[Rfam]
RNA sequence: UGAAAUAAUUGUUAGGUGAGGCUCCUAUAUGGACAUAAGCUGCUGCCGCGAAAGGAUCGAGAGACCCUUAGUUGGUUGAACAGGAAUAAUCGUGAAGGUUAUUCAUAACGUAGCUGAUUGGGAAUAGAUUACAAUCUACGCCAUAUAGUGCUAAAGCUCAACGAUGAUGUAAGUGU
Dot-bracket structure: .....((..((([.(((..(((..((((((((......(((((.((((.....((.((....)).)).....)))).......(((..(((....])))..))).....))))).(((((...........)))))....)))))))).)))...)))..))....)..)).....
Annotation
Rfam assigns this 176-nucleotide RNA sequence from Enterococcus sp. PFB1-1 to the family "M-box riboswitch aptamer (ykoK leader)". For this family Rfam cites "New RNA motifs suggest an expanded scope for riboswitches in bacterial genetic control" (Barrick et al., Proc Natl Acad Sci U S A, 2004).